A member of the RNA family "Purine riboswitch aptamer" from Eubacterium sp. AF22-8LB, 102 nucleotides long. Its family is annotated with purine nucleobase biosynthetic process in the Gene Ontology. The base pairs follow the family's consensus structure, which is taken from published work. The match comes from Rfam's covariance-model search (74 bits).
[Rfam]
RNA sequence: UGAUAUAAUCCUAUCGUGUUUCGUAUAUGUCGACUAAUACGGUGUCGACGUUUCUACCCCUAAACCGUAAAUUCAGGGACUAUGAAUCAACCUACUUUUUUA
Number, nucleotide and partner (000 for none) at each position: 001u000002g000003a000004u000005a000006u000007a000008a000009u000010c000011c000012u000013a000014u000015c000016g000017u000018g088019u000020u086021u085022c084023g083024u082025a081026u000027a000028u000029g049030u048031c047032g046033a045034c044035u000036a000037a000038u000039a000040c000041g000042g000043u000044g034045u033046c032047g031048a030049c029050g000051u000052u000053u000054c000055u000056a000057c000058c078059c077060c076061u075062a000063a073064a072065c000066c000067g000068u000069a000070a000071a000072u064073u063074c000075a061076g060077g059078g058079a000080c000081u025082a024083u023084g022085a021086a020087u000088c018089a000090a000091c000092c000093u000094a000095c000096u000097u000098u000099u000100u000101u000102a000